[Rfam]
RNA sequence: UUUUAUAUUUUUCUCCGAGCCCUAUCCCCUGUGGCUGUUGCUAUGGGAAUAGGGACCAUGGGUUUAUGUGGAAACGCAUAGGCCUCCCACGUUUGGAAAGGAGAAGGCAAAGAUGGAGC
Numbered sequence: 001u002u003u004u005a006u007a008u009u010u011u012u013c014u015c016c017g018a019g020c021c022c023u024a025u026c027c028c029c030u031g032u033g034g035c036u037g038u039u040g041c042u043a044u045g046g047g048a049a050u051a052g053g054g055a056c057c058a059u060g061g062g063u064u065u066a067u068g069u070g071g072a073a074a075c076g077c078a079u080a081g082g083c084c085u086c087c088c089a090c091g092u093u094u095g096g097a098a099a100g101g102a103g104a105a106g107g108c109a110a111a112g113a114u115g116g117a118g119c
Stems, first nucleotide, its partner, number of pairs: 003113002006110001011105006020054006027047003033042003060085011086096002

Rfam assigns this 119-nucleotide RNA sequence from Sinanaerobacter chloroacetimidivorans to the family "Molybdenum/Tungsten riboswitch aptamer (Moco RNA motif)". A search with the family's covariance model found it, with a score of 78 bits. The family's consensus secondary structure is taken from published work. Rfam links the family to the GO terms tungstate binding, molybdenum ion binding and regulation of gene expression.